Shown here is a 353-nucleotide part of an RNA from Suttonella indologenes, a member of the family "Bacterial small subunit ribosomal RNA". Pairs were carried over by alignment from the consensus structure, which is taken from published work. The source organism's lineage runs through Bacteria, Gammaproteobacteria, Cardiobacteriales, Cardiobacteriaceae and Suttonella. It scores 1556 bits against the family's covariance model.
RNA sequence: GGCGUAAAGCGCACGCAGGCGGUUAUUUAAGUCAGAUGUGAAAGCCCCGGGCUUAACCUGGGAAUUGCAUUUGAAACUGGGUAACUAGAGUAUGUCAGAGGAAGGCGGAAUUUCCAGUGUAGCAGUGAAAUGCGUAGAGAUUGGAAGGAACACCGAUGGCGAAGGCAGCCUUCUGGGGCAAUACUGACGCUCAUGUGCGAAAGCGUGGGUAGCAAACAGGAUUAGAUACCCUGGUAGUCCACGCCCUAAACGAUGUCAACUAGGUGUUGGGCACUUAAGUGCUCGGUACCGCAGCUAACGCAUUAAGUUGACCGCCUGGGGAGUACGGCCGCAAGGUUGAAACUCAAAGAAAU
Dot-bracket structure: (((.....(.((((...(((.(((((((.(((((((((((.....((((((.....))))))...)))))))))..)))))))))...(((.((((...((((((((...((((((((...(((......)))......))))))))...).......((....)).)))))))..))))..)))...)))...))))....((((((...((...((((.........))))...))))))))..........((((((..((((((((((((....))))))))))))...((....)).....)))))))))).(((......((((....))))....)))........
Numbered sequence: 001g002g003c004g005u006a007a008a009g010c011g012c013a014c015g016c017a018g019g020c021g022g023u024u025a026u027u028u029a030a031g032u033c034a035g036a037u038g039u040g041a042a043a044g045c046c047c048c049g050g051g052c053u054u055a056a057c058c059u060g061g062g063a064a065u066u067g068c069a070u071u072u073g074a075a076a077c078u079g080g081g082u083a084a085c086u087a088g089a090g091u092a093u094g095u096c097a098g099a100g101g102a103a104g105g106c107g108g109a110a111u112u113u114c115c116a117g118u119g120u121a122g123c124a125g126u127g128a129a130a131u132g133c134g135u136a137g138a139g140a141u142u143g144g145a146a147g148g149a150a151c152a153c154c155g156a157u158g159g160c161g162a163a164g165g166c167a168g169c170c171u172u173c174u175g176g177g178g179c180a181a182u183a184c185u186g187a188c189g190c191u192c193a194u195g196u197g198c199g200a201a202a203g204c205g206u207g208g209g210u211a212g213c214a215a216a217c218a219g220g221a222u223u224a225g226a227u228a229c230c231c232u233g234g235u236a237g238u239c240c241a242c243g244c245c246c247u248a249a250a251c252g253a254u255g256u257c258a259a260c261u262a263g264g265u266g267u268u269g270g271g272c273a274c275u276u277a278a279g280u281g282c283u284c285g286g287u288a289c290c291g292c293a294g295c296u297a298a299c300g301c302a303u304u305a306a307g308u309u310g311a312c313c314g315c316c317u318g319g320g321g322a323g324u325a326c327g328g329c330c331g332c333a334a335g336g337u338u339g340a341a342a343c344u345c346a347a348a349g350a351a352a353u
Stems, first nucleotide, its partner, number of pairs: 001316003009313001011198004018191003022085007030078002032074009046062006089185003093180004100174007107151001111147008122133003159166002203244006212238002217233004255312006263290012294301002318345003327338004